[Rfam]
Mammalian CPEB3 ribozyme: a 77-nucleotide RNA from Alligator mississippiensis. Rfam links the family to the GO term RNA nuclease activity. The source organism's lineage runs through Eukaryota, Metazoa, Sauropsida, Archosauria and Alligator.
RNA sequence: AGAUAAGCAUUUGAGGCCAGAGCAGAGAUGCUCAUGGUGCAGCCCUUUUAGAUUCCAGUAAAUCUGUGAAUUCUUCU
Numbered sequence: 001a002g003a004u005a006a007g008c009a010u011u012u013g014a015g016g017c018c019a020g021a022g023c024a025g026a027g028a029u030g031c032u033c034a035u036g037g038u039g040c041a042g043c044c045c046u047u048u049u050a051g052a053u054u055c056c057a058g059u060a061a062a063u064c065u066g067u068g069a070a071u072u073c074u075u076c077u
Stems, first nucleotide, its partner, number of pairs: 013045001015044003021077002024074004029039002049066006